[Rfam]
Record summary: The family of this 60-nucleotide RNA sequence from Gymnorhina tibicen is "Small nucleolar RNA SNORD58". Lineage of the source: Eukaryota > Craniata > Coelurosauria > Australaves > Gymnorhina. snoRNA U58 is found in introns 1, 3 and 6 of the ribosomal protein RPL17 gene in humans. It is annotated as a C/D-box small nucleolar RNA.
RNA sequence: UGGCAGUGGUGACUGUCUUAGGACACCUUUGGAGUAACCAUGAAACAAUAAUUGCGCCAC
Numbered sequence: 001u002g003g004c005a006g007u008g009g010u011g012a013c014u015g016u017c018u019u020a021g022g023a024c025a026c027c028u029u030u031g032g033a034g035u036a037a038c039c040a041u042g043a044a045a046c047a048a049u050a051a052u053u054g055c056g057c058c059a060c
Stems, first nucleotide, its partner, number of pairs: 001059004